[Rfam]
RNA sequence: GUGUAUUCUACAGUGCAUGUGUCUCCAGUCGUAUAUAGAGGAACUGGGGAUACAGCUCUGUUGGAAUAAC
Numbered sequence: 001g002u003g004u005a006u007u008c009u010a011c012a013g014u015g016c017a018u019g020u021g022u023c024u025c026c027a028g029u030c031g032u033a034u035a036u037a038g039a040g041g042a043a044c045u046g047g048g049g050a051u052a053c054a055g056c057u058c059u060g061u062u063g064g065a066a067u068a069a070c
Base pairs, nucleotide, nucleotide: 006066007065008064009063010061011060012059013058015056016055018054019053020052021051022050023049024048025047026046027045028044029043